[Rfam]
RNA sequence: CAUCCCAAUGAAGAAUUAUAUAAACUUAAAAGUAGUGGACUGAAUUUCUAUUGAUGAGCAAUGGAUUCUGAGGGGUG
Numbered sequence: 001c002a003u004c005c006c007a008a009u010g011a012a013g014a015a016u017u018a019u020a021u022a023a024a025c026u027u028a029a030a031a032g033u034a035g036u037g038g039a040c041u042g043a044a045u046u047u048c049u050a051u052u053g054a055u056g057a058g059c060a061a062u063g064g065a066u067u068c069u070g071a072g073g074g075g076u077g
Base pairs, nucleotide, nucleotide: 001077002076003075004074005073006072
The record is a 77-nucleotide RNA from Castanea mollissima, which matches "Small nucleolar RNA R21" in Rfam. The family has 6 seed sequences and 472 matches in Rfam 15.1. For this family Rfam cites "Identification of 66 box C/D snoRNAs in Arabidopsis thaliana: extensive gene duplications generated multiple isoforms predicting new ribosomal RNA 2'-O-methylation sites" (Barneche et al., J Mol Biol, 2001). The base pairs follow the family's consensus structure, which was predicted with PFOLD.